RNA sequence: CGGCACAACUCUGGAGAGACCGGUUCAAUCCGGCGCCGAAGGGGCACGAGACGCAGCACCACGCGGCUCCAAACUCUCAGGCAAAAGGACAGAGGGGCGCAU
Number, nucleotide and partner (000 for none) at each position: 001c000002g000003g000004c000005a000006c097007a000008a000009c094010u093011c092012u091013g090014g000015a000016g000017a000018g000019a000020c033021c032022g031023g030024u000025u000026c000027a000028a000029u000030c023031c022032g021033g020034c000035g082036c081037c080038g078039a077040a000041g000042g076043g075044g074045c000046a000047c000048g069049a068050g000051a000052c000053g000054c000055a000056g000057c000058a000059c000060c000061a000062c000063g000064c000065g000066g000067c000068u049069c048070c000071a000072a000073a000074c044075u043076c042077u039078c038079a000080g037081g036082c035083a000084a000085a000086a000087g000088g000089a000090c013091a012092g011093a010094g009095g000096g000097g006098c000099g000100c000101a000102u000
Shown here is a 102-nucleotide RNA from Luteimonas yindakuii, a member of the family "Glycine riboswitch aptamer".
NCBI's taxonomy places the organism under Bacteria, Pseudomonadota, Gammaproteobacteria, Lysobacterales, Luteimonas.
The pairing is the family consensus, mapped onto this sequence.